[Rfam]
RNA sequence: UGGCGCUUGAGGCUUUUUGCCUCAUAACGUUGAAUUGGUAAAGAUGUGGUGAGGCAGAAAGAAGAAAGCCCCGAAGGUCAUUUUUCAAUUAACCAACGAGGCUUGCUCUUAUGCUAGACAACAUCAGAGUAGCCGUUUACCCGCCGCAAGGCAAGGAGAAGAAGGCUAUGAAG
Numbered sequence: 001u002g003g004c005g006c007u008u009g010a011g012g013c014u015u016u017u018u019g020c021c022u023c024a025u026a027a028c029g030u031u032g033a034a035u036u037g038g039u040a041a042a043g044a045u046g047u048g049g050u051g052a053g054g055c056a057g058a059a060a061g062a063a064g065a066a067a068g069c070c071c072c073g074a075a076g077g078u079c080a081u082u083u084u085u086c087a088a089u090u091a092a093c094c095a096a097c098g099a100g101g102c103u104u105g106c107u108c109u110u111a112u113g114c115u116a117g118a119c120a121a122c123a124u125c126a127g128a129g130u131a132g133c134c135g136u137u138u139a140c141c142c143g144c145c146g147c148a149a150g151g152c153a154a155g156g157a158g159a160a161g162a163a164g165g166c167u168a169u170g171a172a173g
Stems, first nucleotide, its partner, number of pairs: 002071002005069004013061013073097001076094001078091001080089003098136001100134003105130005111124003140165002144161001
Source information:
The family of this 173-nucleotide RNA sequence from Pseudescherichia vulneris is "sok antitoxin (CssrC)". Rfam describes the family as follows. Also identified in Shigella as CssrC. The family's RNA type in Rfam is antitoxin RNA. It scores 105 bits against the family's covariance model. Rfam 15.1 lists 305 matches to the family in 167 species. NCBI's taxonomy places the organism under Bacteria, Pseudomonadota, Enterobacterales, Pseudescherichia, Pseudescherichia vulneris.